[Rfam]
RNA sequence: UGUGGGAUGCCGAAGUCGGGUCCCGCCACGCAACACUCGCUGAUUAAUCGGGAGACGAACGAUGACU
Numbered sequence: 001u002g003u004g005g006g007a008u009g010c011c012g013a014a015g016u017c018g019g020g021u022c023c024c025g026c027c028a029c030g031c032a033a034c035a036c037u038c039g040c041u042g043a044u045u046a047a048u049c050g051g052g053a054g055a056c057g058a059a060c061g062a063u064g065a066c067u
Base pairs, nucleotide, nucleotide: 002026003025004024005023006022007021008020010019011018012017036054037053038052040051041050042049043048
RNA: Repression of heat shock gene expression (ROSE) element